[Rfam]
RNA sequence: UUCGCUAGAAAUCAACCCAGGUCGACACCGCAACGGUGCCGACGAGGUGGCCCGCCACGCCGGCAGCGGGCCCCGCUGGCAGAGCAUUCUCUGCCCGGCCCCAUCAAGGGGCCAACGGGACAUAACAGUCAAC
Numbered sequence: 001u002u003c004g005c006u007a008g009a010a011a012u013c014a015a016c017c018c019a020g021g022u023c024g025a026c027a028c029c030g031c032a033a034c035g036g037u038g039c040c041g042a043c044g045a046g047g048u049g050g051c052c053c054g055c056c057a058c059g060c061c062g063g064c065a066g067c068g069g070g071c072c073c074c075g076c077u078g079g080c081a082g083a084g085c086a087u088u089c090u091c092u093g094c095c096c097g098g099c100c101c102c103a104u105c106a107a108g109g110g111g112c113c114a115a116c117g118g119g120a121c122a123u124a125a126c127a128g129u130c131a132a133c
Stems, first nucleotide, its partner, number of pairs: 021043004026038004049072007078095006097113006
rmf RNA: a 133-nucleotide sequence. It is annotated as a cis-regulatory element. The base pairs follow the family's consensus structure, which is taken from published work. A search with the family's covariance model found it, with a score of 127 bits.